[Rfam]
RNA: Whalefall-1 RNA
Organism: Parvularcula marina
RNA sequence: UUACCUCUCCCUAGGACAAGGGAGAGGUCGAAACCCGCUUGGCGGGUUUCGGGUGAGGGU
Dot-bracket structure: ...(((((((((......)))))))))..(((((((((...)))))))))..........